[Rfam]
RNA: MIR2118 microRNA precursor family
Organism: Leersia perrieri
RNA sequence: GCAGGGAAGAGGAAGAAAGAGAGUCUCUAAGAGUGAUGGGAAUAGGAACAUAGAGGAAAGGCAAAAGUAAACUUUUCUCCUCCAGUAAUGAAGGUAGAGAUUUGCUCUAUGUUUUCCCGAUGCCUCCUAUUCCUACCGACCUUAGUUACUCCUUCCUCUUCUUUUAGCUC
Numbered sequence: 001g002c003a004g005g006g007a008a009g010a011g012g013a014a015g016a017a018a019g020a021g022a023g024u025c026u027c028u029a030a031g032a033g034u035g036a037u038g039g040g041a042a043u044a045g046g047a048a049c050a051u052a053g054a055g056g057a058a059a060g061g062c063a064a065a066a067g068u069a070a071a072c073u074u075u076u077c078u079c080c081u082c083c084a085g086u087a088a089u090g091a092a093g094g095u096a097g098a099g100a101u102u103u104g105c106u107c108u109a110u111g112u113u114u115u116c117c118c119g120a121u122g123c124c125u126c127c128u129a130u131u132c133c134u135a136c137c138g139a140c141c142u143u144a145g146u147u148a149c150u151c152c153u154u155c156c157u158c159u160u161c162u163u164u165u166a167g168c169u170c
Base pairs, nucleotide, nucleotide: 009161010160011159012158013157015155016154017153021151022150023149027145028144029143030142031141034138035137037135038134039133040132041131042130043129044128045127046126047125049122050121051120053118055117056116057115058114059113060112